[Rfam]
Shown here is a 217-nucleotide sequence from Citrobacter rodentium, a member of the family "STnc560 Hfq binding RNA". A search with the family's covariance model found it, with a score of 128 bits. Taxonomically the source falls in Citrobacter rodentium (Bacteria, Pseudomonadota, Gammaproteobacteria, Citrobacter).

RNA sequence: CUUCCAUUGACACAAGGCGUGGUAAGUUGUUUUCCGAUUCGUUGUCGCGCACGAAGUGCAUUGGCUGCGAAAAGAGUAAAACAAAUCUAUCCAUGCAAGCAUUUUACCGUCGGUUCUCCGGCGGUUUUUUUUAUUUCUUACGUAUAAAAAAGGCCCCUUGUGCAAAAUCUGCGACAAGGGGCCUGGUCGGUGAGGAGUUAUCUCCGUUCAUUAAUCA
Numbered sequence: 001c002u003u004c005c006a007u008u009g010a011c012a013c014a015a016g017g018c019g020u021g022g023u024a025a026g027u028u029g030u031u032u033u034c035c036g037a038u039u040c041g042u043u044g045u046c047g048c049g050c051a052c053g054a055a056g057u058g059c060a061u062u063g064g065c066u067g068c069g070a071a072a073a074g075a076g077u078a079a080a081a082c083a084a085a086u087c088u089a090u091c092c093a094u095g096c097a098a099g100c101a102u103u104u105u106a107c108c109g110u111c112g113g114u115u116c117u118c119c120g121g122c123g124g125u126u127u128u129u130u131u132u133a134u135u136u137c138u139u140a141c142g143u144a145u146a147a148a149a150a151a152g153g154c155c156c157c158u159u160g161u162g163c164a165a166a167a168u169c170u171g172c173g174a175c176a177a178g179g180g181g182c183c184u185g186g187u188c189g190g191u192g193a194g195g196a197g198u199u200a201u202c203u204c205c206g207u208u209c210a211u212u213a214a215u216c217a
Stems, first nucleotide, its partner, number of pairs: 019030004040069003044065001046063002049059003106125008150184001152183010162172003